[Rfam]
RNA sequence: AAUAUUUGAUUUGAACAGACGGUGCAUCAAUGCUGCAUGCAGUCGGGCUUUGAACGAAGCAGUGGAUUAAAUCCAUGGGACAAUU
Numbered sequence: 001a002a003u004a005u006u007u008g009a010u011u012u013g014a015a016c017a018g019a020c021g022g023u024g025c026a027u028c029a030a031u032g033c034u035g036c037a038u039g040c041a042g043u044c045g046g047g048c049u050u051u052g053a054a055c056g057a058a059g060c061a062g063u064g065g066a067u068u069a070a071a072u073c074c075a076u077g078g079g080a081c082a083a084u085u
Stems, first nucleotide, its partner, number of pairs: 011083003016079001018044003022038005047060005062076006
Dot-bracket structure: ..........(((..(.(((.(((((.......)))))...)))..(((((....))))).((((((...))))))..).)))..